[Rfam]
RNA sequence: CGCGCCGUCAUUGGGGAGUAGUCGCUGUCCGCGCCCUGCGGGCAGGUACGUAUCAACAUAAUUGUUCCUCAGAACAUGGUGCGUACAGCUUCGGCCUGACCAGACCUUUGACCUGAUGCUUCGCCACGGGGUCGGCCGAGGCUGUCAGGUCAUGGGAAUUGUUAGCCGCCCCGGAGAU
Numbered sequence: 001c002g003c004g005c006c007g008u009c010a011u012u013g014g015g016g017a018g019u020a021g022u023c024g025c026u027g028u029c030c031g032c033g034c035c036c037u038g039c040g041g042g043c044a045g046g047u048a049c050g051u052a053u054c055a056a057c058a059u060a061a062u063u064g065u066u067c068c069u070c071a072g073a074a075c076a077u078g079g080u081g082c083g084u085a086c087a088g089c090u091u092c093g094g095c096c097u098g099a100c101c102a103g104a105c106c107u108u109u110g111a112c113c114u115g116a117u118g119c120u121u122c123g124c125c126a127c128g129g130g131g132u133c134g135g136c137c138g139a140g141g142c143u144g145u146c147a148g149g150u151c152a153u154g155g156g157a158a159u160u161g162u163u164a165g166c167c168g169c170c171c172c173g174g175a176g177a178u
Stems, first nucleotide, its partner, number of pairs: 026044008046086010063076005087178001089176005

Rfam assigns this 178-nucleotide RNA from Fluviicoccus keumensis to the family "Manganese Mn2+ riboswitch aptamer (yybP-ykoY)". The family has 29 seed sequences and 1,126 matches in Rfam 15.1. This RNA was originally discovered in E. coli during a large scale screen and was named SraF. The family was later found to exist upstream of related families of protein genes in many bacteria, including the the yybP and ykoK genes in B. subtilis.